This 74-nucleotide sequence from Neolamprologus brichardi belongs to the Rfam family "Small nucleolar RNA SNORD73". The family's RNA type in Rfam is C/D-box small nucleolar RNA. The match comes from Rfam's covariance-model search (53 bits). For this family Rfam cites "A novel snoRNA (U73) is encoded within the introns of the human and mouse ribosomal protein S3a genes" (Rebane et al., Gene, 1998). The organism belongs to Neolamprologus, within Eukaryota. Rfam links the family to the GO terms RNA processing and nucleolus.
[Rfam]
RNA sequence: AAUGUGUGAUGACAAACUGUUUCGGUCCCAAAUGAUGGUCCUGAUUACUUACGAGACCAACUGCCUUUCCCAUU
Numbered sequence: 001a002a003u004g005u006g007u008g009a010u011g012a013c014a015a016a017c018u019g020u021u022u023c024g025g026u027c028c029c030a031a032a033u034g035a036u037g038g039u040c041c042u043g044a045u046u047a048c049u050u051a052c053g054a055g056a057c058c059a060a061c062u063g064c065c066u067u068u069c070c071c072a073u074u
Stems, first nucleotide, its partner, number of pairs: 001074004